tRNA: an 87-nucleotide RNA sequence from Aspergillus ellipticus. The match comes from Rfam's covariance-model search (53 bits). The source organism's lineage runs through Eukaryota, Ascomycota, leotiomyceta, Aspergillus and Aspergillus ellipticus.
RNA sequence: GCGCCAAUCGUCUAGUGGUUAGGAUGCAACCUUCCCAAUCCUCAUUGGAGUCAGGUUGCGACGCGAGUUCGAAUCUCGCUUGGCGCA
Numbered sequence: 001g002c003g004c005c006a007a008u009c010g011u012c013u014a015g016u017g018g019u020u021a022g023g024a025u026g027c028a029a030c031c032u033u034c035c036c037a038a039u040c041c042u043c044a045u046u047g048g049a050g051u052c053a054g055g056u057u058g059c060g061a062c063g064c065g066a067g068u069u070c071g072a073a074u075c076u077c078g079c080u081u082g083g084c085g086c087a
Stems, first nucleotide, its partner, number of pairs: 001086007010025004027058005063079005